[Rfam]
RNA: SAM riboswitch aptamer (S box leader)
Organism: Paenibacillus solanacearum
RNA sequence: CUCUUAUCAAGAGCAGGUCGAGGGACUAGCCCGAUGACACCCGGCAACCGACAAAACUUUGCGCCAUUGCGGCGCAGGGCGAUGCACGGUGCUAAUUCUUGCGGAAGCGUAUGCUUCUGAGAGAUGAGAG
Numbered sequence: 001c002u003c004u005u006a007u008c009a010a011g012a013g014c015a016g017g018u019c020g021a022g023g024g025a026c027u028a029g030c031c032c033g034a035u036g037a038c039a040c041c042c043g044g045c046a047a048c049c050g051a052c053a054a055a056a057c058u059u060u061g062c063g064c065c066a067u068u069g070c071g072g073c074g075c076a077g078g079g080c081g082a083u084g085c086a087c088g089g090u091g092c093u094a095a096u097u098c099u100u101g102c103g104g105a106a107g108c109g110u111a112u113g114c115u116u117c118u119g120a121g122a123g124a125u126g127a128g129a130g
Stems, first nucleotide, its partner, number of pairs: 001130008013042001016041003022032003026101001028099002043093004048089002050085001052084002097122001102119006